[Rfam]
RNA: TPP riboswitch aptamer (THI element)
Organism: Thermoflavimicrobium daqui
RNA sequence: UACAUAAAACACGGGAGCUUGGAGAUAGCCGGGCUGAGAGGGUGGAGAACUCUGCCACCGACCGUAAACCUGAUCUGGGUAAUGCCAGCGUAGGGAAUGACUUUGCUUUCGUUCU
Numbered sequence: 001u002a003c004a005u006a007a008a009a010c011a012c013g014g015g016a017g018c019u020u021g022g023a024g025a026u027a028g029c030c031g032g033g034c035u036g037a038g039a040g041g042g043u044g045g046a047g048a049a050c051u052c053u054g055c056c057a058c059c060g061a062c063c064g065u066a067a068a069c070c071u072g073a074u075c076u077g078g079g080u081a082a083u084g085c086c087a088g089c090g091u092a093g094g095g096a097a098u099g100a101c102u103u104u105g106c107u108u109u110c111g112u113u114c115u
Base pairs, nucleotide, nucleotide: 006103007102010099011065012064013063014062017034018033019032020031021030041059042058043057044056045055069094070093071092072091075088076087077086078085